Notes
This 51-nucleotide RNA from Celeribacter neptunius belongs to the Rfam family "SAM/SAH riboswitch aptamer". Taxonomically the source falls in Celeribacter (Bacteria, Pseudomonadati, Pseudomonadota, Rhodobacterales).
[Rfam]
RNA sequence: CGACCCGCACAACGGCUUCCUGGCGUGCGGGUGACAUGAACCAAUGGAGCA
Number, nucleotide and partner (000 for none) at each position: 001c000002g000003a000004c031005c030006c029007g028008c027009a026010c025011a000012a000013c022014g021015g050016c049017u048018u000019c047020c046021u014022g013023g000024c000025g010026u009027g008028c007029g006030g005031g004032u000033g000034a000035c000036a000037u000038g000039a000040a000041c000042c000043a000044a000045u000046g020047g019048a017049g016050c015051a000